The record is a 149-nucleotide RNA from Caballeronia glathei, which matches "Burkholderia sRNA 7" in Rfam. The literature on the family includes a 2017 paper in Microbiology by Ghosh et al., "Identification of novel small RNAs in Burkholderia cenocepacia KC-01 expressed under iron limitation and oxidative stress conditions". A search with the family's covariance model found it, with a score of 95 bits. By type it is a small RNA. From the family's description: Did not show any change in expression in iron-depletion and hydrogen peroxide (oxidative stress) treatment. Constitutively expressed. Possibly targets the GTPase, ObgE. Taxonomically the source falls in Caballeronia (Bacteria, Pseudomonadota, Burkholderiales, Burkholderiaceae).

RNA sequence: GUAUCCUUCGCGAAUGAUCGAAAUCCAGACCAGCCUCCGACGUCGCCGCUCGCCGCUUCCCUAGGGAUGCCGCUGGCUCGUCACGGAUUUGCGCUCAUGUAAGCUUUCGAAGCGCAGGAAAUGAAGCCACGGGAUACCGUGGCUUUUGU
Numbered sequence: 001g002u003a004u005c006c007u008u009c010g011c012g013a014a015u016g017a018u019c020g021a022a023a024u025c026c027a028g029a030c031c032a033g034c035c036u037c038c039g040a041c042g043u044c045g046c047c048g049c050u051c052g053c054c055g056c057u058u059c060c061c062u063a064g065g066g067a068u069g070c071c072g073c074u075g076g077c078u079c080g081u082c083a084c085g086g087a088u089u090u091g092c093g094c095u096c097a098u099g100u101a102a103g104c105u106u107u108c109g110a111a112g113c114g115c116a117g118g119a120a121a122u123g124a125a126g127c128c129a130c131g132g133g134a135u136a137c138c139g140u141g142g143c144u145u146u147u148g149u
Stems, first nucleotide, its partner, number of pairs: 004119004010094003030086002038080003042077003045073002048070002053065001123146010